[Rfam]
RNA sequence: CGAAUAGAACAGCCGAAUUUCCAAGUGAAAACGGGGGAACCAUACGUAUUGUUGCCGCUGACGCGCCGCUCGUAUCCGGGCGCCGGCUCAGCCGCAACUUGGGGUGAAUUUCGAGACGUUUGCCGUCAUUCGAAUAGGGCCGCCUGUCCGGCCCGAACCCGACAGCUAACCUCGCAGGCUGACGGACUAGGACUC
Numbered sequence: 001c002g003a004a005u006a007g008a009a010c011a012g013c014c015g016a017a018u019u020u021c022c023a024a025g026u027g028a029a030a031a032c033g034g035g036g037g038a039a040c041c042a043u044a045c046g047u048a049u050u051g052u053u054g055c056c057g058c059u060g061a062c063g064c065g066c067c068g069c070u071c072g073u074a075u076c077c078g079g080g081c082g083c084c085g086g087c088u089c090a091g092c093c094g095c096a097a098c099u100u101g102g103g104g105u106g107a108a109u110u111u112c113g114a115g116a117c118g119u120u121u122g123c124c125g126u127c128a129u130u131c132g133a134a135u136a137g138g139g140c141c142g143c144c145u146g147u148c149c150g151g152c153c154c155g156a157a158c159c160c161g162a163c164a165g166c167u168a169a170c171c172u173c174g175c176a177g178g179c180u181g182a183c184g185g186a187c188u189a190g191g192a193c194u195c
Stems, first nucleotide, its partner, number of pairs: 011180004018030003032174005041101002102160003110134006137154004

About this RNA
This 195-nucleotide RNA sequence from Paenibacillus sp. 32O-W belongs to the Rfam family "c-di-AMP riboswitch aptamer (ydaO/yuaA leader)".